[Rfam]
RNA sequence: GAGAGUGGGCCCCUCGGAAGCGGCUUGCAGGAGCAGGUUUCAAACCGCCUUAAACUGCAUUGGUAAAUAGCCAUUGUGGUGAGCGUUAAGGAAAAGGCCUCACUAAAGGGGUCAGGU
Numbered sequence: 001g002a003g004a005g006u007g008g009g010c011c012c013c014u015c016g017g018a019a020g021c022g023g024c025u026u027g028c029a030g031g032a033g034c035a036g037g038u039u040u041c042a043a044a045c046c047g048c049c050u051u052a053a054a055c056u057g058c059a060u061u062g063g064u065a066a067a068u069a070g071c072c073a074u075u076g077u078g079g080u081g082a083g084c085g086u087u088a089a090g091g092a093a094a095a096g097g098c099c100u101c102a103c104u105a106a107a108g109g110g111g112u113c114a115g116g117u
Base pairs, nucleotide, nucleotide: 001015002014003013005011016041017040018039019038021036023034024033025032026031046116048091049090050089051088052087053086054080055079057077058076059075061073062072063071064070096113097112098111099110100109101108